This 106-nucleotide sequence from Algoriphagus zhangzhouensis belongs to the Rfam family "SAM riboswitch aptamer (S box leader)".
[Rfam]
RNA sequence: GAUUUAUAAAGAAGAGGCGAGAGAAUAGGCUCUAAGACCCUCUGGCAACCAUUCGGCGAAUUACCGAAAAGGUGCCAAAUCCUACCCGAAUUGGGAACUAUAAAUU
Numbered sequence: 001g002a003u004u005u006a007u008a009a010a011g012a013a014g015a016g017g018c019g020a021g022a023g024a025a026u027a028g029g030c031u032c033u034a035a036g037a038c039c040c041u042c043u044g045g046c047a048a049c050c051a052u053u054c055g056g057c058g059a060a061u062u063a064c065c066g067a068a069a070a071g072g073u074g075c076c077a078a079a080u081c082c083u084a085c086c087c088g089a090a091u092u093g094g095g096a097a098c099u100a101u102a103a104a105u106u
Base pairs, nucleotide, nucleotide: 001106002105003104004103005102006101007100008099013043014042015041016040017039021032022031023030026084027083028082029081044076045075046074047073049072050071052068053067054066055065085095086094087093088092
The source organism's lineage runs through Bacteria, Bacteroidota, Cytophagales, Cyclobacteriaceae and Algoriphagus.